[Rfam]
RNA sequence: CUGGCUUUGGUGCUGGAGAACAGCUCUGGGCAGGCCUUUGCUCUGGUCCCUGCUGGGACCCACACUCUUGCUCCAGCCUG
Numbered sequence: 001c002u003g004g005c006u007u008u009g010g011u012g013c014u015g016g017a018g019a020a021c022a023g024c025u026c027u028g029g030g031c032a033g034g035c036c037u038u039u040g041c042u043c044u045g046g047u048c049c050c051u052g053c054u055g056g057g058a059c060c061c062a063c064a065c066u067c068u069u070g071c072u073c074c075a076g077c078c079u080g
Base pairs, nucleotide, nucleotide: 003078004077005076008075009074010073012071013070015068016067017066018065023060025058026057027056029054030053031052033048034047035046036045
The family of this 80-nucleotide sequence from Rattus norvegicus is "mir-1343 microRNA precursor family". Rfam 15.1 lists 238 matches to the family in 131 species. The base pairs follow the family's consensus structure, which was predicted with RNAalifold. Taxonomically the source falls in Rattus (Eukaryota, Bilateria, Theria, Rodentia).